[Rfam]
RNA: mir-8799 microRNA precursor family
RNA sequence: GAGGGGAGAGCAGGAUCCUGGGCUGUGUCCCCCAGCGCCCUGGGCUUGCUGCUGGAAUCGCGCUCCCGGGGCCCACAGCCCCCU
Numbered sequence: 001g002a003g004g005g006g007a008g009a010g011c012a013g014g015a016u017c018c019u020g021g022g023c024u025g026u027g028u029c030c031c032c033c034a035g036c037g038c039c040c041u042g043g044g045c046u047u048g049c050u051g052c053u054g055g056a057a058u059c060g061c062g063c064u065c066c067c068g069g070g071g072c073c074c075a076c077a078g079c080c081c082c083c084u
Stems, first nucleotide, its partner, number of pairs: 001084001003082004010076001013073002017069002020066003024062004028056003031048001035046001037045003